RNA: Purine riboswitch aptamer
RNA sequence: UUUUAGUCGCAUAUAUCUCUUCGUAUAUCCUAGGGGGAUGGGCCUGGGAGUCUCUACCUGGUCACCGUAAAUGACUGGAUGACGAAGGCAGUUCUUGUAUUG
Numbered sequence: 001u002u003u004u005a006g007u008c009g010c011a012u013a014u015a016u017c018u019c020u021u022c023g024u025a026u027a028u029c030c031u032a033g034g035g036g037g038a039u040g041g042g043c044c045u046g047g048g049a050g051u052c053u054c055u056a057c058c059u060g061g062u063c064a065c066c067g068u069a070a071a072u073g074a075c076u077g078g079a080u081g082a083c084g085a086a087g088g089c090a091g092u093u094c095u096u097g098u099a100u101u102g
Base pairs, nucleotide, nucleotide: 018088019087020086021085022084023083024082029048030047031046032045033044034043058078059077060076061075062074063073064072